[Rfam]
RNA sequence: AACGUGAGCUUAAAGUAAACCUAGGCUCUAGCAGAGGCGCUGAAAGGCUGCCUCUAGUACCACCGAGACCGGUGUUGCAACAUCGUCAAAUUGCCUGAAACCCCCGCUAAAUGCUAUUGGUACCGCGGCUUGGCAGAAAUGCUGGGUCGCACCUCAGGGAAACCUGUGGGUAUGGUAAUAAUCCAAUGGAUAGGGGCAAUGGGCAGCCAAGUCCUUCGGUUUCAUUAGAAACAAAGGAUGCAGUUCACAGACUAAAUGGCGAUGGGUGCUCGCACCUAGGGUGCGAGCGCUUAAGAUAUAGUCGGGGCCCUGCAAAGAUGCAGGC
Numbered sequence: 001a002a003c004g005u006g007a008g009c010u011u012a013a014a015g016u017a018a019a020c021c022u023a024g025g026c027u028c029u030a031g032c033a034g035a036g037g038c039g040c041u042g043a044a045a046g047g048c049u050g051c052c053u054c055u056a057g058u059a060c061c062a063c064c065g066a067g068a069c070c071g072g073u074g075u076u077g078c079a080a081c082a083u084c085g086u087c088a089a090a091u092u093g094c095c096u097g098a099a100a101c102c103c104c105c106g107c108u109a110a111a112u113g114c115u116a117u118u119g120g121u122a123c124c125g126c127g128g129c130u131u132g133g134c135a136g137a138a139a140u141g142c143u144g145g146g147u148c149g150c151a152c153c154u155c156a157g158g159g160a161a162a163c164c165u166g167u168g169g170g171u172a173u174g175g176u177a178a179u180a181a182u183c184c185a186a187u188g189g190a191u192a193g194g195g196g197c198a199a200u201g202g203g204c205a206g207c208c209a210a211g212u213c214c215u216u217c218g219g220u221u222u223c224a225u226u227a228g229a230a231a232c233a234a235a236g237g238a239u240g241c242a243g244u245u246c247a248c249a250g251a252c253u254a255a256a257u258g259g260c261g262a263u264g265g266g267u268g269c270u271c272g273c274a275c276c277u278a279g280g281g282u283g284c285g286a287g288c289g290c291u292u293a294a295g296a297u298a299u300a301g302u303c304g305g306g307g308c309c310c311u312g313c314a315a316a317g318a319u320g321c322a323g324g325c
Base pairs, nucleotide, nucleotide: 081264082263083262084261085260087258088257092205093204094203095202096201097200101196102195103194104193206244207243211239212238213237214236219232220231221230222229223228248304250303251302252301253300254299266290267289268288269287270286271285272284273283274282275281276280310323311322312321313320314319

Description: This 325-nucleotide RNA sequence from Raphidocelis subcapitata belongs to the Rfam family "Group I catalytic intron". Rfam 15.1 lists 5,602 matches to the family in 1,395 species. Its family is annotated with Group I intron splicing in the Gene Ontology.